[Rfam]
RNA sequence: GUAUUAUCGGAGGCAGAGUCUUCCAUAAUGU
Numbered sequence: 001g002u003a004u005u006a007u008c009g010g011a012g013g014c015a016g017a018g019u020c021u022u023c024c025a026u027a028a029u030g031u
Base pairs, nucleotide, nucleotide: 001031002030003029004028005027006026007025009024010023011022012021013020014018